The family of this 172-nucleotide RNA sequence from Desulfosporosinus sp. HMP52 is "Group II catalytic intron D1-D4-3".

[Rfam]
RNA sequence: UCCAUUGUGAGGUGGAAUCUGAAGGAAGCCGGAGGCAAAGUUCCGACCCGAGGAACACGAAUAACAUCAGGCGCAAAACGUGGGGCGAGACUGCUACCUAAGUUGAAACCCAAAAGCUACACAGACACGUCAGCGUAAAUGUUGCGGGUACAUGGAAUGAAAGUGAAUCGUC
Numbered sequence: 001u002c003c004a005u006u007g008u009g010a011g012g013u014g015g016a017a018u019c020u021g022a023a024g025g026a027a028g029c030c031g032g033a034g035g036c037a038a039a040g041u042u043c044c045g046a047c048c049c050g051a052g053g054a055a056c057a058c059g060a061a062u063a064a065c066a067u068c069a070g071g072c073g074c075a076a077a078a079c080g081u082g083g084g085g086c087g088a089g090a091c092u093g094c095u096a097c098c099u100a101a102g103u104u105g106a107a108a109c110c111c112a113a114a115a116g117c118u119a120c121a122c123a124g125a126c127a128c129g130u131c132a133g134c135g136u137a138a139a140u141g142u143u144g145c146g147g148g149u150a151c152a153u154g155g156a157a158u159g160a161a162a163g164u165g166a167a168u169c170g171u172c
Stems, first nucleotide, its partner, number of pairs: 001016006028172001030170003035164002040158006046149005062144005071136003078130005083111003089104004
It scores 132 bits against the family's covariance model. Taxonomically the source falls in Desulfosporosinus (Bacteria, Bacillati, Bacillota, Desulfitobacteriaceae).